[Rfam]
RNA sequence: UAGCCAUCCAGAGCGACCGAGAGACCUUGGCUCGACGACGUCGCAGCAACCCCGUGCUUGCACGUGAGGGUGCUACCGCCAGGACCGAUGGGAG
Numbered sequence: 001u002a003g004c005c006a007u008c009c010a011g012a013g014c015g016a017c018c019g020a021g022a023g024a025c026c027u028u029g030g031c032u033c034g035a036c037g038a039c040g041u042c043g044c045a046g047c048a049a050c051c052c053c054g055u056g057c058u059u060g061c062a063c064g065u066g067a068g069g070g071u072g073c074u075a076c077c078g079c080c081a082g083g084a085c086c087g088a089u090g091g092g093a094g
Base pairs, nucleotide, nucleotide: 001094004091005090006089007088008087013044014043015042016041017040021033022032023031027082028081029080030079045074046073047072048071050070051069053066054065055064056063078086
Dot-bracket structure: (..(((((....(((((...(((...[[[[)))......)))))((((.((.((((......))))..))))))...(]]]]...))))))..)
Rfam assigns this 94-nucleotide sequence from Rhodococcoides trifolii to the family "SAM riboswitch aptamer (S box leader)". The organism belongs to Rhodococcoides, within Bacteria. The family's consensus secondary structure is taken from published work.